Rfam assigns this 116-nucleotide RNA sequence from Otolemur garnettii to the family "U5 spliceosomal RNA".
[Rfam]
RNA sequence: AUACUCUGUUUUCUCUUCAGACCACAUAAAUCUUUUGCCUUUUACUAAAGAUUUCCAUGGAGAGGAACAAUUCUGAGUCUUUACCCAAUUUUUUCAGGUCUUGUGUUUACAAGGCU
Numbered sequence: 001a002u003a004c005u006c007u008g009u010u011u012u013c014u015c016u017u018c019a020g021a022c023c024a025c026a027u028a029a030a031u032c033u034u035u036u037g038c039c040u041u042u043u044a045c046u047a048a049a050g051a052u053u054u055c056c057a058u059g060g061a062g063a064g065g066a067a068c069a070a071u072u073c074u075g076a077g078u079c080u081u082u083a084c085c086c087a088a089u090u091u092u093u094u095c096a097g098g099u100c101u102u103g104u105g106u107u108u109a110c111a112a113g114g115c116u
Base pairs, nucleotide, nucleotide: 003078004077005076006075010067011066012065013064014063015062016061017060018059019058028054029053030052031051032050033049034048035047096116098115099114100113101112102111103110
It scores 96 bits against the family's covariance model. It is annotated as a spliceosomal small nuclear RNA.